[Rfam]
RNA: MIR5272 microRNA precursor family
RNA sequence: UUGGAUGUGAAUUGAUUUAUGUUUGGAUACACUUAUUUAAAAGUGAUUCAUAUGAGUUGAUGUUGUUUGGAUAG
Numbered sequence: 001u002u003g004g005a006u007g008u009g010a011a012u013u014g015a016u017u018u019a020u021g022u023u024u025g026g027a028u029a030c031a032c033u034u035a036u037u038u039a040a041a042a043g044u045g046a047u048u049c050a051u052a053u054g055a056g057u058u059g060a061u062g063u064u065g066u067u068u069g070g071a072u073a074g
Stems, first nucleotide, its partner, number of pairs: 011061008021053002025049004030045005
Dot-bracket structure: ..........((((((((..((..((((.(((((......)))))))))..)))))))))).............